[Rfam]
RNA: DUF805b RNA
Nucleotides: 033
Stems, first nucleotide, its partner, number of pairs: 002021004010032003
Number, partner (000 for none) and nucleotide at each position: 001000a002021a003020u004019g005018c006000g007000g008000a009000u010032a011031c012030c013000g014000a015000a016000a017000a018005g019004c020003a021002u022000a023000u024000a025000g026000a027000g028000u029000a030012g031011g032010u033000a